[Rfam]
Shown here is a 133-nucleotide sequence from Perca flavescens, a member of the family "U8 small nucleolar RNA". By type it is a C/D-box small nucleolar RNA. A reference for the family is Peculis et al. (2001), "The U8 snoRNA gene family: identification and characterization of distinct, functional U8 genes in Xenopus", Gene. Rfam 15.1 lists 1,597 matches to the family in 457 species. The family's consensus secondary structure is taken from published work. A search with the family's covariance model found it, with a score of 106 bits. Gene Ontology terms of the family: nucleolus and RNA processing.
RNA sequence: UCUUCAGUGAGGUACAUCCUUACCUGUUACUCCCACCAAGGAGUAUCAGAACAUGAUGAAUGGAGACUCAUGAGAUAUGAUUAAUAUCUCCAUCUUGUAGGGAACAGCAACACCCUACAAGACCCAUUCUGAC
Numbered sequence: 001u002c003u004u005c006a007g008u009g010a011g012g013u014a015c016a017u018c019c020u021u022a023c024c025u026g027u028u029a030c031u032c033c034c035a036c037c038a039a040g041g042a043g044u045a046u047c048a049g050a051a052c053a054u055g056a057u058g059a060a061u062g063g064a065g066a067c068u069c070a071u072g073a074g075a076u077a078u079g080a081u082u083a084a085u086a087u088c089u090c091c092a093u094c095u096u097g098u099a100g101g102g103a104a105c106a107g108c109a110a111c112a113c114c115c116u117a118c119a120a121g122a123c124c125c126a127u128u129c130u131g132a133c
Stems, first nucleotide, its partner, number of pairs: 024049003028045006072090002075087003078083001094121008
Dot-bracket structure: .......................(((.((((((......)))))).)))......................((.((((....).))).))...((((((((............))))))))............